The record is a 539-nucleotide part of an RNA from Culicosporella lunata, which matches "Microsporidia small subunit ribosomal RNA" in Rfam.
The literature on the family includes a 2001 paper in Science by Yusupov et al., "Crystal structure of the ribosome at 5.5 A resolution".
Its Rfam clan is "SSU clan".
The family has 46 seed sequences and 1,035 matches in Rfam 15.1.
RNA sequence: UGACGGAAGGACACCACCAGGAGUGGAGUGUGCGGGUUAAUUUGACUCAACGCGGGAAAACUUACCAGUACAGAUUACUAUCGUAUGAAGGAAUACCUGAUGAUGUAAUACGUGGUGCAUGGCCGUUCUUAACACGUGAAGUGAUUCCUCGUGUCAAAUCAGCUAACGCGUGAGAGGCGAGUCUUAUUUUAUAAAUAAGAGACGGCAUAGGCAACUAUGAGGAAGCAACGCCCAAUAACAGGUCCGUGAUGCCCGUAGAUGUUCUGGGCUCCACGCGCACUACAAUUAUAAAUACUAUUUUGUAAUUUAUAAUCAGUAGGGAUUGUUUGUUGUAAAACUUACAUGAACGUGGAAUUCCUAGUAUAUAGAUGUAAGCAACGUCUAUUGAAUAUUGUCCCUGUUCUUUGUACACACCGCCCGUCGUUAUCUAAGAUGGUUAUUAGGGGGAAGCUGAUAUAUUAUAUCAGAAGACUUCUGGUAACUAGAUUGGAUGUAAGUCGUAACAUGGUUGCAGUAGGUGAACCUGCCGCAGAUCAGUA
Numbered sequence: 001u002g003a004c005g006g007a008a009g010g011a012c013a014c015c016a017c018c019a020g021g022a023g024u025g026g027a028g029u030g031u032g033c034g035g036g037u038u039a040a041u042u043u044g045a046c047u048c049a050a051c052g053c054g055g056g057a058a059a060a061c062u063u064a065c066c067a068g069u070a071c072a073g074a075u076u077a078c079u080a081u082c083g084u085a086u087g088a089a090g091g092a093a094u095a096c097c098u099g100a101u102g103a104u105g106u107a108a109u110a111c112g113u114g115g116u117g118c119a120u121g122g123c124c125g126u127u128c129u130u131a132a133c134a135c136g137u138g139a140a141g142u143g144a145u146u147c148c149u150c151g152u153g154u155c156a157a158a159u160c161a162g163c164u165a166a167c168g169c170g171u172g173a174g175a176g177g178c179g180a181g182u183c184u185u186a187u188u189u190u191a192u193a194a195a196u197a198a199g200a201g202a203c204g205g206c207a208u209a210g211g212c213a214a215c216u217a218u219g220a221g222g223a224a225g226c227a228a229c230g231c232c233c234a235a236u237a238a239c240a241g242g243u244c245c246g247u248g249a250u251g252c253c254c255g256u257a258g259a260u261g262u263u264c265u266g267g268g269c270u271c272c273a274c275g276c277g278c279a280c281u282a283c284a285a286u287u288a289u290a291a292a293u294a295c296u297a298u299u300u301u302g303u304a305a306u307u308u309a310u311a312a313u314c315a316g317u318a319g320g321g322a323u324u325g326u327u328u329g330u331u332g333u334a335a336a337a338c339u340u341a342c343a344u345g346a347a348c349g350u351g352g353a354a355u356u357c358c359u360a361g362u363a364u365a366u367a368g369a370u371g372u373a374a375g376c377a378a379c380g381u382c383u384a385u386u387g388a389a390u391a392u393u394g395u396c397c398c399u400g401u402u403c404u405u406u407g408u409a410c411a412c413a414c415c416g417c418c419c420g421u422c423g424u425u426a427u428c429u430a431a432g433a434u435g436g437u438u439a440u441u442a443g444g445g446g447g448a449a450g451c452u453g454a455u456a457u458a459u460u461a462u463a464u465c466a467g468a469a470g471a472c473u474u475c476u477g478g479u480a481a482c483u484a485g486a487u488u489g490g491a492u493g494u495a496a497g498u499c500g501u502a503a504c505a506u507g508g509u510u511g512c513a514g515u516a517g518g519u520g521a522a523c524c525u526g527c528c529g530c531a532g533a534u535c536a537g538u539a
Base pairs, nucleotide, nucleotide: 001411002410003408004407005406007405008404009403010402011401012400013399016395017394020358021357022356023355024354025283027281028280029279030278031277032276033275034274035272036271041056042055043054044053065267066266067265068264070262071261076107077106078105081102089098090097091096111255112254114253115252116251117250120249121247122243123242124241125239126238127237132171133170135168136167137166138147139146140145152161153160177231178230179229190197191196203222206219207218208217209216210215287311288310289309290308291307292306319348324343325342326341329338330337365385366384367383368382369381370380371379416504419500420499422497425493426492427491428490429489430488431487434484435483436482437481438480439479440478441477442476443475444474445473446472451467452466453465454464455463456462510531511530512529514527515526516525517524518523